[Rfam]
RNA sequence: UUAAUGCAAGGUGAUGGUGUUCCACCUUUCCCAACCGCUUCCCUGAGAAGAUGAUGACGCCUGGUAUGUC
Numbered sequence: 001u002u003a004a005u006g007c008a009a010g011g012u013g014a015u016g017g018u019g020u021u022c023c024a025c026c027u028u029u030c031c032c033a034a035c036c037g038c039u040u041c042c043c044u045g046a047g048a049a050g051a052u053g054a055u056g057a058c059g060c061c062u063g064g065u066a067u068g069u070c
Base pairs, nucleotide, nucleotide: 010026011025012024013023016061017060018059019058020057021056038050039049040048

Rfam assigns this 70-nucleotide RNA sequence from Pluralibacter gergoviae to the family "Fluoride riboswitch aptamer (crcB RNA motif)".
NCBI's taxonomy places the organism under Bacteria, Pseudomonadota, Gammaproteobacteria, Enterobacteriaceae, Pluralibacter.